Shown here is a 93-nucleotide RNA sequence from Drosophila virilis, a member of the family "Small nucleolar RNA Me28S-Gm1083". A search with the family's covariance model found it, with a score of 78 bits. The source organism's lineage runs through Eukaryota, Diptera, Schizophora, Drosophila and Drosophila. The pairing is the family consensus, mapped onto this sequence. A reference for the family is Huang et al. (2005), "Genome-wide analyses of two families of snoRNA genes from Drosophila melanogaster, demonstrating the extensive utilization of introns for coding of snoRNAs", RNA.
[Rfam]
RNA sequence: UAAUUGUGAUGAGCUCAAAGCUUUCGCCCCUAUCUGAAACAUAAGAGAAACUUCUCAUGUUGAGUGCGGGAUUGGUCUUACUGAUAUUGAUAC
Dot-bracket structure: ((((.................................................................................))).)...